[Rfam]
The record is a 146-nucleotide sequence from Citrobacter koseri, which matches "Short Intergenic Abundant RNA" in Rfam. The organism belongs to Citrobacter koseri, within Bacteria. Its family is annotated with mRNA binding in the Gene Ontology. By type it is an antitoxin RNA. It scores 150 bits against the family's covariance model. The family has 17 seed sequences and 111 matches in Rfam 15.1. This family contains multiple ncRNA from E. coli that were identified in a large scale screen of E. coli, were they were called candidates 43,55 and 61.
Nucleotides: 146
Stems, first nucleotide, its partner, number of pairs: 031142004037138006045062003064110004111132007
Number, partner (000 for none) and nucleotide at each position: 001000u002000u003000g004000a005000c006000a007000u008000u009000a010000u011000u012000u013000u014000u015000g016000c017000u018000g019000u020000g021000g022000c023000u024000u025000a026000u027000u028000u029000u030000c031142a032141g033140g034139a035000g036000u037138g038137a039136g040135g041134g042133u043000u044000a045062g046061g047060g048000a049000g050000g051000g052000u053000u054000u055000c056000c057000c058000c059000u060047c061046c062045c063000c064110c065109u066108g067107g068000u069000g070000u071000c072000u073000u074000a075000g076000u077000a078000a079000g080000u081000c082000u083000g084000a085000a086000a087000g088000c089000u090000a091000a092000u093000c094000a095000c096000u097000a098000a099000g100000a101000g102000u103000a104000u105000c106000a107067c108066c109065a110064g111132u112131a113130u114129g115128a116127u117126g118000a119000c120000g121000c122000a123000c124000u125000u126117c127116a128115u129114c130113a131112u132111a133042a134041c135040c136039c137038u138037u139034u140033c141032c142031u143000u144000a145000u146000u